[Rfam]
RNA sequence: GCUUGAGCAAGGGAGCACCCUUCAGUCCAACCACAAACGGCGCAGAGCUAAAUUUUAGCUCCCGCGUCAUCCAGUCCGCUACCAAGAGAUACACUCCUGCAACUUUCUUGGUAGGUGAAUGGAUGAUUCGGCAGCUAAUAAAACCCUACGGCCAUCUGAGAGUGGACUGAAGAGAGCUCUCUUCUUACACAUG
Numbered sequence: 001g002c003u004u005g006a007g008c009a010a011g012g013g014a015g016c017a018c019c020c021u022u023c024a025g026u027c028c029a030a031c032c033a034c035a036a037a038c039g040g041c042g043c044a045g046a047g048c049u050a051a052a053u054u055u056u057a058g059c060u061c062c063c064g065c066g067u068c069a070u071c072c073a074g075u076c077c078g079c080u081a082c083c084a085a086g087a088g089a090u091a092c093a094c095u096c097c098u099g100c101a102a103c104u105u106u107c108u109u110g111g112u113a114g115g116u117g118a119a120u121g122g123a124u125g126a127u128u129c130g131g132c133a134g135c136u137a138a139u140a141a142a143a144c145c146c147u148a149c150g151g152c153c154a155u156c157u158g159a160g161a162g163u164g165g166a167c168u169g170a171a172g173a174g175a176g177c178u179c180u181c182u183u184c185u186u187a188c189a190c191a192u193g
Base pairs, nucleotide, nucleotide: 013179014178015177016176018174020172023169024168025167026166027165028164029163059134060133062131063130064129068125069124070123071122076117
Dot-bracket structure: ............((((.(.(..(((((((.............................((.(((...((((....(........................................)....))))...))).))............................)))))))..).).))))..............
Shown here is a 193-nucleotide RNA sequence from Oryza glumipatula, a member of the family "MIR159 microRNA precursor family".
The source organism's lineage runs through Eukaryota, Streptophyta, Tracheophyta, Oryzinae and Oryza.
It scores 79 bits against the family's covariance model.
The family's consensus secondary structure was predicted with WAR.
Rfam links the family to the GO terms RISC complex and miRNA-mediated post-transcriptional gene silencing.
The family has 66 seed sequences and 3,649 matches in Rfam 15.1.